Description:
Shown here is a 132-nucleotide RNA sequence from Cyprinodon variegatus, a member of the family "Small nucleolar RNA SNORA14". It scores 54 bits against the family's covariance model. Pairs were carried over by alignment from the consensus structure, which was predicted with RNAfold. Lineage of the source: Eukaryota > Metazoa > Neoteleostei > Percomorphaceae > Cyprinodon.
[Rfam]
Nucleotides: 132
Stems, first nucleotide, its partner, number of pairs: 003058004009050002020044005027037002069127005083114007091106002097102001
Number, partner (000 for none) and nucleotide at each position: 001000a002000u003058g004057c005056a006055u007000c008000c009050u010049u011000a012000g013000a014000a015000a016000a017000c018000c019000c020044c021043c022042c023041a024040g025000c026000u027037g028036c029000u030000u031000c032000u033000g034000u035000a036028g037027c038000u039000u040024c041023u042022g043021g044020g045000a046000c047000a048000a049010g050009a051000a052000a053000g054000g055006g056005u057004g058003c059000u060000a061000g062000a063000u064000c065000a066000a067000c068000g069127u070126u071125a072124g073123a074000a075000c076000u077000a078000u079000c080000c081000a082000a083114a084113g085112c086111u087110g088109a089108g090000a091106a092105c093000a094000g095000a096000g097102u098000u099000u100000c101000u102097g103000u104000g105092g106091u107000u108089c109088u110087c111086a112085g113084c114083u115000a116000u117000u118000u119000c120000a121000c122000c123073u124072c125071u126070a127069a128000g129000a130000c131000a132000u
Rfam describes the family as follows. ACA14 is a member of the H/ACA class of snoRNA that guide the sites of modification of uridines to pseudouridines. It is annotated as an H/ACA-box small nucleolar RNA. Its family is annotated with nucleolus and RNA processing in the Gene Ontology.